The family of this 191-nucleotide RNA from Pengzhenrongella frigida is "c-di-AMP riboswitch aptamer (ydaO/yuaA leader)".
Rfam links the family to the GO terms regulation of gene expression and cyclic-di-AMP binding.
Lineage of the source: Bacteria > Bacillati > Actinomycetota > Actinomycetes > Pengzhenrongella.
RNA sequence: GAGGUGGACCGCCAAAUCCUGCCACCACCGACGGACCUUUCGACGUCUCGCUGGCAGGAGCGGGGGACCCAAGCACGACGGACACCGGAUUGUCGAUGUCCUUGGGGUGAAGCCGAUCGCUCGUUGAUCGGCCGGGCGCAUACUCCCGCCCGAACCCGACAGCUCACCCCGAAGGCGACCGGAGAGGUCCC
Numbered sequence: 001g002a003g004g005u006g007g008a009c010c011g012c013c014a015a016a017u018c019c020u021g022c023c024a025c026c027a028c029c030g031a032c033g034g035a036c037c038u039u040u041c042g043a044c045g046u047c048u049c050g051c052u053g054g055c056a057g058g059a060g061c062g063g064g065g066g067a068c069c070c071a072a073g074c075a076c077g078a079c080g081g082a083c084a085c086c087g088g089a090u091u092g093u094c095g096a097u098g099u100c101c102u103u104g105g106g107g108u109g110a111a112g113c114c115g116a117u118c119g120c121u122c123g124u125u126g127a128u129c130g131g132c133c134g135g136g137c138g139c140a141u142a143c144u145c146c147c148g149c150c151c152g153a154a155c156c157c158g159a160c161a162g163c164u165c166a167c168c169c170c171g172a173a174g175g176c177g178a179c180c181g182g183a184g185a186g187g188u189c190c191c
Stems, first nucleotide, its partner, number of pairs: 010177004017059008061171005070104004105157003113131004134151004